[Rfam]
RNA: DUF805b RNA
Organism: Filimonas lacunae
RNA sequence: CAUGGGCAAGCCGAAAACCAUUCAAGAGAGUAGGCA
Numbered sequence: 001c002a003u004g005g006g007c008a009a010g011c012c013g014a015a016a017a018c019c020a021u022u023c024a025a026g027a028g029a030g031u032a033g034g035c036a
Base pairs, nucleotide, nucleotide: 002021003020004019005018010035011034012033